[Rfam]
RNA sequence: GGAGACGUGGGUGAGUGGCUGAAACCAACGCUUUGCUAAAGCGUCGUACGGGGAACCGUACCGAGGGUUCGAAUCCCUCCGUCUCCG
Numbered sequence: 001g002g003a004g005a006c007g008u009g010g011g012u013g014a015g016u017g018g019c020u021g022a023a024a025c026c027a028a029c030g031c032u033u034u035g036c037u038a039a040a041g042c043g044u045c046g047u048a049c050g051g052g053g054a055a056c057c058g059u060a061c062c063g064a065g066g067g068u069u070c071g072a073a074u075c076c077c078u079c080c081g082u083c084u085c086c087g
Base pairs, nucleotide, nucleotide: 001086002085003084004083005082006081007080010026011025012024028044029043030042031041032040063079064078065077066076067075
RNA: tRNA